[Rfam]
RNA sequence: GUGCACCAGAUACUAACCAGACUGUCUUCAGCCCAGUUCUUCUUCUGAACUGGUGUCUGUGUCUCCAGUGGCUGUCGGGUCAAUAAAGGUGCAAGAGAAAUAUAAGCCCUUGAGAUUUAAGCUCUGAGUGUGCAGAUUAUCUCUCAUGUGUUAUUACUCAAGGUCACAGCA
Numbered sequence: 001g002u003g004c005a006c007c008a009g010a011u012a013c014u015a016a017c018c019a020g021a022c023u024g025u026c027u028u029c030a031g032c033c034c035a036g037u038u039c040u041u042c043u044u045c046u047g048a049a050c051u052g053g054u055g056u057c058u059g060u061g062u063c064u065c066c067a068g069u070g071g072c073u074g075u076c077g078g079g080u081c082a083a084u085a086a087a088g089g090u091g092c093a094a095g096a097g098a099a100a101u102a103u104a105a106g107c108c109c110u111u112g113a114g115a116u117u118u119a120a121g122c123u124c125u126g127a128g129u130g131u132g133c134a135g136a137u138u139a140u141c142u143c144u145c146a147u148g149u150g151u152u153a154u155u156a157c158u159c160a161a162g163g164u165c166a167c168a169g170c171a
Stems, first nucleotide, its partner, number of pairs: 003092005016080003020076003024072003027061001029059003032055001033053001035051005106165001108163001126143003130140002145162001147160002150157002
Shown here is a 171-nucleotide sequence from Chanos chanos, a member of the family "Small Cajal body specific RNA 1". About the family: scaRNAs are a specific class of small nuclear RNAs which localise to the Cajal bodies and guide the modification of RNA polymerase II transcribed spliceosomal RNAs U1, U2, U4, U5 and U12. Lineage of the source: Eukaryota > Clupeocephala > Ostariophysi > Anotophysi > Chanos. For this family Rfam cites "Cajal body-specific small nuclear RNAs: a novel class of 2'-O-methylation and pseudouridylation guide RNAs" (Darzacq et al., EMBO J, 2002). It scores 66 bits against the family's covariance model.